[Rfam]
RNA sequence: UCAGUCGGCCGGACGGCCGCUUCGGUUCACGCCGGAGAGGAAAGUCCGGGCUCCAUGGAAAGCACGGCGCCGGAUAACGUCCGGCGGGGGCGACCCCAGGGAAAGUGCCACAGAAAGCAAACCGCCUCCGGCCUCCGGGCCGGCGGUAAGGGUGAAAGGGUGCGGUAAGAGCGCACCGCGCUGCCGGUAACGGGAGCGGCACGGCAAACCCCGCCGGGAGCAAAACCGAAUAGGGGCGACGCGUCUUCCGUCUUCGGGCGGAAGGCAGGCCCGCUUCCAGGCCGUCGCCCGGGUUGGUUGCUUGAGGCGUCCAGCAAUGGGCGUCCCAGAGGAAUGGCCGUCACGCGCGGCGGGAGGGGGCGACCUCUCGCGCCGCGCCAUACAGAACCCGGCUUACAGGCCGACUGACGCU
Numbered sequence: 001u002c003a004g005u006c007g008g009c010c011g012g013a014c015g016g017c018c019g020c021u022u023c024g025g026u027u028c029a030c031g032c033c034g035g036a037g038a039g040g041a042a043a044g045u046c047c048g049g050g051c052u053c054c055a056u057g058g059a060a061a062g063c064a065c066g067g068c069g070c071c072g073g074a075u076a077a078c079g080u081c082c083g084g085c086g087g088g089g090g091c092g093a094c095c096c097c098a099g100g101g102a103a104a105g106u107g108c109c110a111c112a113g114a115a116a117g118c119a120a121a122c123c124g125c126c127u128c129c130g131g132c133c134u135c136c137g138g139g140c141c142g143g144c145g146g147u148a149a150g151g152g153u154g155a156a157a158g159g160g161u162g163c164g165g166u167a168a169g170a171g172c173g174c175a176c177c178g179c180g181c182u183g184c185c186g187g188u189a190a191c192g193g194g195a196g197c198g199g200c201a202c203g204g205c206a207a208a209c210c211c212c213g214c215c216g217g218g219a220g221c222a223a224a225a226c227c228g229a230a231u232a233g234g235g236g237c238g239a240c241g242c243g244u245c246u247u248c249c250g251u252c253u254u255c256g257g258g259c260g261g262a263a264g265g266c267a268g269g270c271c272c273g274c275u276u277c278c279a280g281g282c283c284g285u286c287g288c289c290c291g292g293g294u295u296g297g298u299u300g301c302u303u304g305a306g307g308c309g310u311c312c313a314g315c316a317a318u319g320g321g322c323g324u325c326c327c328a329g330a331g332g333a334a335u336g337g338c339c340g341u342c343a344c345g346c347g348c349g350g351c352g353g354g355a356g357g358g359g360g361c362g363a364c365c366u367c368u369c370g371c372g373c374c375g376c377g378c379c380a381u382a383c384a385g386a387a388c389c390c391g392g393c394u395u396a397c398a399g400g401c402c403g404a405c406u407g408a409c410g411c412u
Stems, first nucleotide, its partner, number of pairs: 001408010011397001012342007020037007042395003046392005051220004061276002065216005070084005085099001086097004100211002105209002107205003122151002124147003128143006159177006178200001179198004184193003224299004234290006268283004306325008
This 412-nucleotide RNA from Methylopila sp. Yamaguchi belongs to the Rfam family "Bacterial RNase P class A".